[Rfam]
RNA sequence: AUUUGUAAAAGGCAAAUCUAUUGAAAAGUAGAGACGCAAAGCCUCAGACCUAAGGUGUUUUACUAAGGUGGCUGGGCCGCUGAA
Numbered sequence: 001a002u003u004u005g006u007a008a009a010a011g012g013c014a015a016a017u018c019u020a021u022u023g024a025a026a027a028g029u030a031g032a033g034a035c036g037c038a039a040a041g042c043c044u045c046a047g048a049c050c051u052a053a054g055g056u057g058u059u060u061u062a063c064u065a066a067g068g069u070g071g072c073u074g075g076g077c078c079g080c081u082g083a084a
Base pairs, nucleotide, nucleotide: 012037013036017032018031019030020029021028022027041077042076043075045074046073047072048069049068050067055063056062057061
RNA: c-di-GMP-I riboswitch aptamer